Overview:
Rfam assigns this 124-nucleotide sequence from Erwinia sp. OLSSP12 to the family "RtT RNA". Lineage of the source: Bacteria > Pseudomonadati > Enterobacterales > Erwiniaceae > Erwinia. Pairs were carried over by alignment from the consensus structure, which is taken from published work. Rfam describes the family as follows. This family represents a bacterial cis-regulatory element known as RtT RNA. The exact function of RtT is unknown although it is thought that it may be involved in changing the cellular response in relation to amino acid starvation. It is annotated as a cis-regulatory element.

[Rfam]
RNA sequence: UUUGCGUGACAGAACGGCAGGAUGAGAACCUGCAGCAGGUUCGGGCCGAACGCAGUGAGACAACGUUGCGACAGCAACGGCCCGCAGGGUGAGGCGCAGCCGAAUCAUCCUGCACGACCCACCA
Number, nucleotide and partner (000 for none) at each position: 001u000002u000003u000004g000005c000006g000007u000008g000009a000010c000011a000012g000013a000014a000015c000016g000017g113018c112019a111020g110021g109022a000023u107024g000025a000026g000027a000028a000029c000030c000031u000032g000033c091034a090035g000036c088037a000038g000039g000040u086041u000042c084043g083044g000045g000046c000047c057048g056049a000050a000051c000052g000053c000054a000055g000056u048057g047058a000059g000060a000061c000062a000063a000064c079065g078066u077067u076068g075069c074070g000071a000072c000073a000074g069075c068076a067077a066078c065079g064080g000081c000082c000083c043084g042085c000086a040087g000088g036089g000090u034091g033092a000093g000094g000095c000096g000097c000098a000099g000100c000101c000102g000103a000104a000105u000106c000107a023108u000109c021110c020111u019112g018113c017114a000115c000116g000117a000118c000119c000120c000121a000122c000123c000124a000
A search with the family's covariance model found it, with a score of 95 bits.